[Rfam]
RNA sequence: GCACCUGAAUCUUUCCCAUUCCUUGCAGUGCAGUGCAGGCCUGGGGACACAUGGUGCGAACAGCAAAGCAGAGUAAAUCCAGACAGGUGGUUUUCCUCCCUCCUUGAGGGCUUGUCUCUACAACUCUGCAACAUUC
Numbered sequence: 001g002c003a004c005c006u007g008a009a010u011c012u013u014u015c016c017c018a019u020u021c022c023u024u025g026c027a028g029u030g031c032a033g034u035g036c037a038g039g040c041c042u043g044g045g046g047a048c049a050c051a052u053g054g055u056g057c058g059a060a061c062a063g064c065a066a067a068g069c070a071g072a073g074u075a076a077a078u079c080c081a082g083a084c085a086g087g088u089g090g091u092u093u094u095c096c097u098c099c100c101u102c103c104u105u106g107a108g109g110g111c112u113u114g115u116c117u118c119u120a121c122a123a124c125u126c127u128g129c130a131a132c133a134u135u136c
Stems, first nucleotide, its partner, number of pairs: 001057005013047006021039002068129006081117008096108003
Shown here is a 136-nucleotide RNA from Pelodiscus sinensis, a member of the family "Small nucleolar RNA SNORA55". It scores 126 bits against the family's covariance model. Gene Ontology terms of the family: RNA processing and nucleolus.